[Rfam]
RNA sequence: CCUCUAGAGGAUGAGGAGAUGGUGUCCUUCAUCGUCACAGGCCUUGACAUUGAGUUCAACCCCGUCAUCUCCGCCGUCUUCGCCCGUGUCGAGCCGAUCACUGUCAACGAGCUCUUCACCCAGCUCCUUGCCUUUGAGC
Numbered sequence: 001c002c003u004c005u006a007g008a009g010g011a012u013g014a015g016g017a018g019a020u021g022g023u024g025u026c027c028u029u030c031a032u033c034g035u036c037a038c039a040g041g042c043c044u045u046g047a048c049a050u051u052g053a054g055u056u057c058a059a060c061c062c063c064g065u066c067a068u069c070u071c072c073g074c075c076g077u078c079u080u081c082g083c084c085c086g087u088g089u090c091g092a093g094c095c096g097a098u099c100a101c102u103g104u105c106a107a108c109g110a111g112c113u114c115u116u117c118a119c120c121c122a123g124c125u126c127c128u129u130g131c132c133u134u135u136g137a138g139c
Base pairs, nucleotide, nucleotide: 004138005137007135008134088108089107091105092104
Dot-bracket structure: ...((.((...............................................................................((.((...........)).)).........................)).)).
About this RNA
This 139-nucleotide sequence from Digitaria exilis belongs to the Rfam family "Small nucleolar RNA Z247". The organism belongs to Digitaria, within Eukaryota. The match comes from Rfam's covariance-model search (40 bits). Pairs were carried over by alignment from the consensus structure, which was predicted with PFOLD. For this family Rfam cites "The high diversity of snoRNAs in plants: identification and comparative study of 120 snoRNA genes from Oryza sativa" (Chen et al., Nucleic Acids Res, 2003).